[Rfam]
RNA sequence: AGGUCGAUGAUGAGAACUCACAUUGUCUUGAAGGGAGAUGAUGUAAAAAUCAUUCAUCAUAGGGUUUUCUGAGGCCC
Numbered sequence: 001a002g003g004u005c006g007a008u009g010a011u012g013a014g015a016a017c018u019c020a021c022a023u024u025g026u027c028u029u030g031a032a033g034g035g036a037g038a039u040g041a042u043g044u045a046a047a048a049a050u051c052a053u054u055c056a057u058c059a060u061a062g063g064g065u066u067u068u069c070u071g072a073g074g075c076c077c
Stems, first nucleotide, its partner, number of pairs: 002076003005071002009067001